[Rfam]
RNA sequence: GAAUGAGAUGAUGAUUAUGAUAUGUUUCCCUAUUGGUUUGAUUGCCGAAAUGAUGGCAAACAUUCUGUAUUAGCUCUAUCUGAUCAUUC
Numbered sequence: 001g002a003a004u005g006a007g008a009u010g011a012u013g014a015u016u017a018u019g020a021u022a023u024g025u026u027u028c029c030c031u032a033u034u035g036g037u038u039u040g041a042u043u044g045c046c047g048a049a050a051u052g053a054u055g056g057c058a059a060a061c062a063u064u065c066u067g068u069a070u071u072a073g074c075u076c077u078a079u080c081u082g083a084u085c086a087u088u089c
Base pairs, nucleotide, nucleotide: 002088003087004086005085040061043058044057045056046055
Source information
Rfam assigns this 89-nucleotide RNA sequence from Manihot esculenta to the family "Small nucleolar RNA Z102/R77". Rfam classes the family as a C/D-box small nucleolar RNA. The base pairs follow the family's consensus structure, which was predicted with PFOLD. A reference for the family is Chen et al. (2003), "The high diversity of snoRNAs in plants: identification and comparative study of 120 snoRNA genes from Oryza sativa", Nucleic Acids Res. The source organism's lineage runs through Eukaryota, Embryophyta, Euphorbiaceae, Crotonoideae and Manihot. Rfam links the family to the GO terms RNA processing and nucleolus. Its Rfam clan is "SNORD44 clan". It scores 90 bits against the family's covariance model.